[Rfam]
RNA sequence: GGGAGCCAAAAACUAAAUGAACGAAGUUCAUUUCUAUAAAUGUUUUUGGCGAACUGCCGCCGAAUGAAGGGAGAAGUUUAAAUGGAUA
Numbered sequence: 001g002g003g004a005g006c007c008a009a010a011a012a013c014u015a016a017a018u019g020a021a022c023g024a025a026g027u028u029c030a031u032u033u034c035u036a037u038a039a040a041u042g043u044u045u046u047u048g049g050c051g052a053a054c055u056g057c058c059g060c061c062g063a064a065u066g067a068a069g070g071g072a073g074a075a076g077u078u079u080a081a082a083u084g085g086a087u088a
Base pairs, nucleotide, nucleotide: 008047009046010045011044012043013042016032017031018030019029020028021027056078058076061073065069